This 238-nucleotide RNA belongs to the Rfam family "RT-7 RNA". Rfam's curators put it in the seed alignment. Pairs were carried over by alignment from the consensus structure, which is taken from published work.
RNA sequence: UCGAGAGUAUUGCAGGUCCAAGUGCUUGCAGUAGAGUGAUGUGUAAAUUCAGCAAUCCACUGGCGGAGUAAUGUGCGUAUAGGGAUUAUGCAUUGUGUGAUGAUUCUGCAAUGCCCUGAGUUACGUUUCCGUUAGUUGUCUAUUCCAGUCUGUAUAGGGACUUGACGGUGCAUCAUGCCUUUAUGACAAGUGUAUCUGUUGUUUUCCGGUACAUUCAUUUACAGUGAUUGCUUUUCCG
Numbered sequence: 001u002c003g004a005g006a007g008u009a010u011u012g013c014a015g016g017u018c019c020a021a022g023u024g025c026u027u028g029c030a031g032u033a034g035a036g037u038g039a040u041g042u043g044u045a046a047a048u049u050c051a052g053c054a055a056u057c058c059a060c061u062g063g064c065g066g067a068g069u070a071a072u073g074u075g076c077g078u079a080u081a082g083g084g085a086u087u088a089u090g091c092a093u094u095g096u097g098u099g100a101u102g103a104u105u106c107u108g109c110a111a112u113g114c115c116c117u118g119a120g121u122u123a124c125g126u127u128u129c130c131g132u133u134a135g136u137u138g139u140c141u142a143u144u145c146c147a148g149u150c151u152g153u154a155u156a157g158g159g160a161c162u163u164g165a166c167g168g169u170g171c172a173u174c175a176u177g178c179c180u181u182u183a184u185g186a187c188a189a190g191u192g193u194a195u196c197u198g199u200u201g202u203u204u205u206c207c208g209g210u211a212c213a214u215u216c217a218u219u220u221a222c223a224g225u226g227a228u229u230g231c232u233u234u235u236c237c238g
Base pairs, nucleotide, nucleotide: 001039002038008033009032010031011030012029013028014027015026016025051232052231053230054229055228056227057226059136060135061134062133063132064131065130066129076125077124078123079122080119082117083116084115151213152212153211154210155209157207158206159205160204165199166198167197